[Rfam]
RNA sequence: CGGAGUAACCUAGGUUAGGGAAUUCGGCAAAAUAGUGGCGUAAGUUUUCGACAAGCCAUGUCUGCGUAUAGUAUGCGCAGAUAGCAUUAACAAGGGAACAACGACUGUUUAUCAAAAACACAACUCACCGCAAAGCCGUAAGGCUUAGUACAGUGGGUGACGCCUGCUCACCGCCAGUACGUGAACACCCUUUUCAAGGGGGAUAAGCGCUGGCAAAGAGCGGGAGUAACUCUGACUCUCUUAAGGUAGCGUAAUACCUCGUCACUUAAUAGGUGACUUGCAUGAAUGGCGUAACGAUUGUUCCACUGUCCCAACCUAGGGUCCGGUGAACUCACUGCGCGGUGAAUAUGCCGCGAU
Number, nucleotide and partner (000 for none) at each position: 001c325002g324003g323004a322005g000006u000007a000008a000009c320010c319011u318012a317013g316014g315015u314016u313017a000018g311019g310020g309021a000022a000023u000024u000025c000026g000027g000028c000029a000030a000031a000032a000033u000034a000035g059036u058037g057038g056039c055040g000041u000042a000043a000044g049045u000046u000047u000048u000049c044050g000051a000052c000053a000054a000055g039056c038057c037058a036059u035060g082061u081062c080063u079064g078065c077066g076067u075068a074069u000070a000071g000072u000073a000074u068075g067076c066077g065078c064079a063080g062081a061082u060083a087084g000085c000086a000087u083088u000089a000090a000091c000092a000093a000094g000095g304096g303097a302098a301099c300100a299101a298102c296103g295104a000105c000106u120107g119108u118109u000110u000111a000112u000113c000114a000115a000116a000117a000118a108119c107120a106121c000122a000123a158124c157125u156126c155127a154128c153129c000130g151131c148132a000133a000134a145135g144136c143137c142138g000139u000140a000141a000142g137143g136144c135145u134146u000147a000148g131149u000150a000151c130152a000153g128154u127155g126156g125157g124158u123159g000160a000161c291162g290163c289164c288165u000166g221167c220168u219169c000170a000171c218172c000173g214174c213175c212176a211177g210178u000179a000180c209181g208182u207183g000184a000185a000186c000187a000188c201189c200190c199191u198192u000193u000194u000195c000196a000197a000198g191199g190200g189201g188202g000203a000204u000205a000206a000207g182208c181209g180210c177211u176212g175213g174214c173215a000216a000217a000218g171219a168220g167221c166222g240223g239224g238225a237226g236227u235228a000229a000230c000231u000232c000233u000234g000235a227236c226237u225238c224239u223240c222241u245242u000243a000244a000245g241246g000247u000248a000249g000250c000251g000252u000253a000254a000255u000256a000257c000258c000259u000260c000261g277262u276263c275264a274265c273266u272267u000268a000269a000270u000271a000272g266273g265274u264275g263276a262277c261278u000279u000280g000281c000282a000283u000284g000285a000286a000287u000288g164289g163290c162291g161292u000293a000294a000295c103296g102297a000298u101299u100300g099301u098302u097303c096304c095305a000306c000307u000308g000309u020310c019311c018312c000313a016314a015315c014316c013317u012318a011319g010320g009321g000322u004323c003324c002325g001326g000327u000328g000329a000330a000331c000332u000333c000334a000335c000336u000337g000338c355339g354340c353341g352342g351343u000344g000345a000346a000347u000348a000349u000350g000351c342352c341353g340354c339355g338356a000357u000
This 357-nucleotide part of an RNA from Candidatus Micrarchaeum acidiphilum belongs to the Rfam family "Archaeal large subunit ribosomal RNA". The family's consensus secondary structure is taken from published work. Its Rfam clan is "LSU clan". Its family is annotated with ribosome and structural constituent of ribosome in the Gene Ontology. NCBI's taxonomy places the organism under Archaea, Candidatus Micrarchaeia, Candidatus Micrarchaeaceae, Candidatus Micrarchaeum, Candidatus Micrarchaeum acidiphilum.